mraW RNA: a 114-nucleotide RNA sequence from Stackebrandtia endophytica.
[Rfam]
RNA sequence: GCACGAGACCGUAUCGCCUGGUCUCCACCCGCCCGCCGCGCACCUGACACGUCUUCCCCAGUGGCAGGUCUGUGGUGAGCGGUUGGGGUCCAGACGAUACGGGGUCACCAGGGA
Numbered sequence: 001g002c003a004c005g006a007g008a009c010c011g012u013a014u015c016g017c018c019u020g021g022u023c024u025c026c027a028c029c030c031g032c033c034c035g036c037c038g039c040g041c042a043c044c045u046g047a048c049a050c051g052u053c054u055u056c057c058c059c060a061g062u063g064g065c066a067g068g069u070c071u072g073u074g075g076u077g078a079g080c081g082g083u084u085g086g087g088g089u090c091c092a093g094a095c096g097a098u099a100c101g102g103g104g105u106c107a108c109c110a111g112g113g114a
Stems, first nucleotide, its partner, number of pairs: 010101007020091002023088005029082004034077007043068004048063003
It is annotated as a cis-regulatory element. The organism belongs to Stackebrandtia, within Bacteria. The match comes from Rfam's covariance-model search (57 bits). Rfam 15.1 lists 851 matches to the family in 821 species.